About this RNA: nadA riboswitch: a 90-nucleotide RNA. For this family Rfam cites "Structural distinctions between NAD+ riboswitch domains 1 and 2 determine differential folding and ligand binding" (Chen et al., Nucleic Acids Res, 2020). Rfam's curators put it in the seed alignment. By type it is a small RNA.
RNA sequence: GGCUGCAACAACCCCGUGGAUGGGGGAGGCUUGAUCGGCCCGGUGUCCGCUGCUGGGCUUCUUGAAAUCUUCAGUGCAUCCACUGCAGCU
Numbered sequence: 001g002g003c004u005g006c007a008a009c010a011a012c013c014c015c016g017u018g019g020a021u022g023g024g025g026g027a028g029g030c031u032u033g034a035u036c037g038g039c040c041c042g043g044u045g046u047c048c049g050c051u052g053c054u055g056g057g058c059u060u061c062u063u064g065a066a067a068u069c070u071u072c073a074g075u076g077c078a079u080c081c082a083c084u085g086c087a088g089c090u
Stems, first nucleotide, its partner, number of pairs: 001090007013076001014074001016083007023075001025072005031066002